[Rfam]
RNA sequence: UUAGCCAGAAGCUUUCGUAAGGAGUAUCUUACUCUUAGGAAGGUCUGAGAAUGCACGUUGGCGAGAAGCCAUUAGUUAAACCUAUAUCUUCCUUAACAGAAAUUCUCUUGCUACCUGACUGAAAUGGGAUGAUGGUAAUAAGAUUGGGAAAGUGAAGAUGUGCAGCUUAAAGAAUAGUCAAAUACGAAAGACAGUUUGUGAACUGUAACUGAAUUCAGACUACUCUCUGGCAAA
Numbered sequence: 001u002u003a004g005c006c007a008g009a010a011g012c013u014u015u016c017g018u019a020a021g022g023a024g025u026a027u028c029u030u031a032c033u034c035u036u037a038g039g040a041a042g043g044u045c046u047g048a049g050a051a052u053g054c055a056c057g058u059u060g061g062c063g064a065g066a067a068g069c070c071a072u073u074a075g076u077u078a079a080a081c082c083u084a085u086a087u088c089u090u091c092c093u094u095a096a097c098a099g100a101a102a103u104u105c106u107c108u109u110g111c112u113a114c115c116u117g118a119c120u121g122a123a124a125u126g127g128g129a130u131g132a133u134g135g136u137a138a139u140a141a142g143a144u145u146g147g148g149a150a151a152g153u154g155a156a157g158a159u160g161u162g163c164a165g166c167u168u169a170a171a172g173a174a175u176a177g178u179c180a181a182a183u184a185c186g187a188a189a190g191a192c193a194g195u196u197u198g199u200g201a202a203c204u205g206u207a208a209c210u211g212a213a214u215u216c217a218g219a220c221u222a223c224u225c226u227c228u229g230g231c232a233a234a
Base pairs, nucleotide, nucleotide: 001234002233004231007228008227009226012190013189014188015187016186017185018184020036021035022034023033024032025031026030045218046217047216048215049214053163054162055161056160060070061069062068073084074083075082087158088157089156090155091154093152106143107142108141191206192205193204194203195202196201
Background: The record is a 234-nucleotide RNA sequence from Tubulinosema ratisbonensis, which matches "Nuclear RNase P" in Rfam. Rfam describes the family as follows. Ribonuclease P (RNase P) is a ubiquitous endoribonuclease, found in archaea, bacteria and eukarya as well as chloroplasts and mitochondria. Taxonomically the source falls in Tubulinosema (Eukaryota, Opisthokonta, Tubulinosematoidea, Tubulinosematidae).